This 61-nucleotide RNA belongs to the Rfam family "Plastid-psbA-1 3UTR RNA". For this family Rfam cites "Retrograde signaling in plants: A critical review focusing on the GUN pathway and beyond" (Richter et al., Plant Commun, 2023). Pairs were carried over by alignment from the consensus structure, which was predicted with LocARNA. About the family: Plastid psbA-1 is a non-coding RNA (ncRNA) present in plastids. It was identified in inverted repeat sequences in the 3 prime untranslate region (3UTR) of photosystem II quinone-binding protein (psbA). The sequence is in the family's curated seed alignment.

RNA sequence: AAAUAAAGGAGCAAUACCAAACUUCUUGAUAGAACAAGAAAUUUAUUAUUGCUCCUUUAUU
Number, nucleotide and partner (000 for none) at each position: 001a000002a000003a000004u000005a058006a057007a056008g055009g054010a053011g052012c051013a050014a049015u048016a047017c000018c000019a044020a043021a042022c000023u040024u039025c038026u037027u036028g000029a000030u000031a000032g000033a000034a000035c000036a027037a026038g025039a024040a023041a000042u021043u020044u019045a000046u000047u016048a015049u014050u013051g012052c011053u010054c009055c008056u007057u006058u005059a000060u000061u000